Description: This 79-nucleotide sequence from Zestomonas carbonaria belongs to the Rfam family "Pseudomonas sRNA P31".

[Rfam]
Nucleotides: 079
Stems, first nucleotide, its partner, number of pairs: 005041001007039003022030003050079004056073005
Number, partner (000 for none) and nucleotide at each position: 001000a002000g003000a004000a005041g006000a007039c008038c009037u010000c011000c012000c013000g014000u015000a016000a017000u018000c019000a020000a021000g022030g023029c024028u025000u026000g027000a028024g029023g030022c031000a032000a033000a034000c035000g036000c037009a038008g039007g040000u041005u042000g043000u044000a045000a046000a047000a048000a049000a050079g051078c052077g053076g054000g055000a056073u057072g058071a059070c060069g061000u062000a063000a064000g065000a066000a067000a068000c069060c070059g071058u072057c073056a074000c075000c076053c077052c078051g079050c